[Rfam]
RNA sequence: UGUCGAAGCUCCAUCUACAAAUGGAUAAGACUUCGGUUUUAGUAUUUUAGUAUUAGUAUAUAUGAGUUUUUGAAAAUAAAGGAGCAAUAAUCAACUUCUUGUUCUUUCAAGAGGGUUGCUAUUGCUCCUUUAU
Numbered sequence: 001u002g003u004c005g006a007a008g009c010u011c012c013a014u015c016u017a018c019a020a021a022u023g024g025a026u027a028a029g030a031c032u033u034c035g036g037u038u039u040u041a042g043u044a045u046u047u048u049a050g051u052a053u054u055a056g057u058a059u060a061u062a063u064g065a066g067u068u069u070u071u072g073a074a075a076a077u078a079a080a081g082g083a084g085c086a087a088u089a090a091u092c093a094a095c096u097u098c099u100u101g102u103u104c105u106u107u108c109a110a111g112a113g114g115g116u117u118g119c120u121a122u123u124g125c126u127c128c129u130u131u132a133u
Stems, first nucleotide, its partner, number of pairs: 010025005078131012093116001096113005
RNA: Plastid-psbA-1 3UTR RNA
Organism: Carpinus cordata